RNA sequence: UAUCUUUGCACCCGAAUUACUACCAUAUAAUUCAUACAUAAUAAUCAUUUAAAGCAAUAUUAGCAUG
Numbered sequence: 001u002a003u004c005u006u007u008g009c010a011c012c013c014g015a016a017u018u019a020c021u022a023c024c025a026u027a028u029a030a031u032u033c034a035u036a037c038a039u040a041a042u043a044a045u046c047a048u049u050u051a052a053a054g055c056a057a058u059a060u061u062a063g064c065a066u067g
Base pairs, nucleotide, nucleotide: 014033015032016031017030018029019028

Annotation
A member of the RNA family "S15-Flavobacteria ribosomal protein leader" from Flavobacterium gelidilacus, 67 nucleotides long. On this family, see Eckert and Weinberg, BMC Microbiol 2020: "Discovery of 20 novel ribosomal leader candidates in bacteria and archaea". It is one of the family's seed sequences. Pairs were carried over by alignment from the consensus structure, which is taken from published work. NCBI's taxonomy places the organism under Bacteria, Pseudomonadati, Bacteroidota, Flavobacteriia, Flavobacterium gelidilacus.